A member of the RNA family "Small nucleolar RNA snoR26" from Capsicum annuum, 91 nucleotides long. Gene Ontology terms of the family: nucleolus and RNA processing. The source organism's lineage runs through Eukaryota, Streptophytina, asterids, Solanales and Capsicum. It scores 70 bits against the family's covariance model.
[Rfam]
RNA sequence: AAGGCAUUAAUGAUGAAUAAUCCAAUUUGUUAUCCUUGCACUUUGAUUGUUAAAUGAAGAUAACAAUAGGGAAACAUUAUAUGAGAUGCUU
Numbered sequence: 001a002a003g004g005c006a007u008u009a010a011u012g013a014u015g016a017a018u019a020a021u022c023c024a025a026u027u028u029g030u031u032a033u034c035c036u037u038g039c040a041c042u043u044u045g046a047u048u049g050u051u052a053a054a055u056g057a058a059g060a061u062a063a064c065a066a067u068a069g070g071g072a073a074a075c076a077u078u079a080u081a082u083g084a085g086a087u088g089c090u091u
Stems, first nucleotide, its partner, number of pairs: 002091007
The family's RNA type in Rfam is C/D-box small nucleolar RNA.